RNA sequence: ACUUGCCUGGAGGGUUUGUGUAUUCAUGAAGAAGCCGAACAACAUCCAAUAGGGAGUCGAGGUAUUGUUGGUGUGAAGACCUUUAAGUAGGGAUCCUAAAAAUAAUACAAGAGACACCCACUUUAAACCUAUAGGUUUAAAAUUGAUUGCGGCUCUUCGGGUGUAAA
Numbered sequence: 001a002c003u004u005g006c007c008u009g010g011a012g013g014g015u016u017u018g019u020g021u022a023u024u025c026a027u028g029a030a031g032a033a034g035c036c037g038a039a040c041a042a043c044a045u046c047c048a049a050u051a052g053g054g055a056g057u058c059g060a061g062g063u064a065u066u067g068u069u070g071g072u073g074u075g076a077a078g079a080c081c082u083u084u085a086a087g088u089a090g091g092g093a094u095c096c097u098a099a100a101a102a103u104a105a106u107a108c109a110a111g112a113g114a115c116a117c118c119c120a121c122u123u124u125a126a127a128c129c130u131a132u133a134g135g136u137u138u139a140a141a142a143u144u145g146a147u148u149g150c151g152g153c154u155c156u157u158c159g160g161g162u163g164u165a166a167a
Stems, first nucleotide, its partner, number of pairs: 004163012017151003032138005052119003056115003062108008075095002080091003
This 167-nucleotide RNA sequence from a Mycoplasmatota bacterium belongs to the Rfam family "6S / SsrS RNA". It is annotated as a non-coding RNA gene. It scores 51 bits against the family's covariance model.